[Rfam]
DUF805 RNA: a 68-nucleotide sequence from Hymenobacter taeanensis.
The family's RNA type in Rfam is cis-regulatory element.
Clan: DUF805 clan.
Pairs were carried over by alignment from the consensus structure, which is taken from published work.
It scores 68 bits against the family's covariance model.
RNA sequence: CUUGAGUGGAGUUCAGAAGCCACUAUAAAAACGAGGCGACACCGAAAAGCCUUACGAGUAGGACCCGC
Number, nucleotide and partner (000 for none) at each position: 001c000002u000003u000004g000005a000006g023007u022008g021009g020010a000011g000012u000013u000014c000015a000016g000017a000018a000019g000020c009021c008022a007023c006024u000025a000026u000027a000028a000029a000030a000031a000032c000033g000034a000035g051036g050037c049038g000039a000040c000041a000042c062043c061044g000045a000046a000047a000048a000049g037050c036051c035052u000053u000054a000055c000056g000057a000058g000059u000060a000061g043062g042063a000064c000065c000066c000067g000068c000